[Rfam]
RNA sequence: CAGAGAUGCCCUUCCGUGCUGGAUAGAUCGAACCCUAGAUAAGUCCGAUCAUCCCAACACGCAAGGGCAUUCUCGCGUCACGACCCGCUCACCACACGCUGAUCAUCGGUGCAUCCAG
Number, nucleotide and partner (000 for none) at each position: 001c000002a073003g072004a071005g070006a000007u069008g068009c067010c066011c065012u064013u063014c000015c061016g060017u059018g000019c000020u056021g055022g054023a000024u000025a000026g050027a049028u048029c000030g046031a000032a044033c043034c000035c000036u000037a000038g000039a000040u000041a000042a000043g033044u032045c000046c030047g000048a028049u027050c026051a000052u000053c000054c022055c021056a020057a000058c000059a017060c016061g015062c000063a013064a012065g011066g010067g009068c008069a007070u005071u004072c003073u002074c000075g000076c000077g000078u000079c000080a000081c000082g000083a000084c000085c000086c000087g000088c000089u000090c000091a000092c000093c000094a000095c000096a000097c000098g000099c000100u000101g115102a114103u113104c111105a110106u000107c000108g000109g000110u105111g104112c000113a103114u102115c101116c000117a000118g000

A member of the RNA family "Actinobacteria sRNA Ms_IGR-7" from Actinopolymorpha pittospori, 118 nucleotides long. The organism belongs to Actinopolymorpha, within Bacteria. Rfam 15.1 lists 463 matches to the family in 194 species. The family's RNA type in Rfam is small RNA.